[Rfam]
This 89-nucleotide RNA sequence from Agromyces atrinae belongs to the Rfam family "Glycine riboswitch aptamer". The source organism's lineage runs through Bacteria, Actinomycetota, Actinomycetes, Microbacteriaceae and Agromyces. It scores 39 bits against the family's covariance model.

RNA sequence: GCCACUCUGAAAAGUGGAUGCUCCGGCAUCCCGCCCAUGGUGAAAGCGCUCGCGCGUGAAACUCUCAGGCUCAUGACAGAGGGGGAGUU
Numbered sequence: 001g002c003c004a005c006u007c008u009g010a011a012a013a014g015u016g017g018a019u020g021c022u023c024c025g026g027c028a029u030c031c032c033g034c035c036c037a038u039g040g041u042g043a044a045a046g047c048g049c050u051c052g053c054g055c056g057u058g059a060a061a062c063u064c065u066c067a068g069g070c071u072c073a074u075g076a077c078a079g080a081g082g083g084g085g086a087g088u089u
Stems, first nucleotide, its partner, number of pairs: 002084002005081005016031004033070003037065001040064001042062001046057002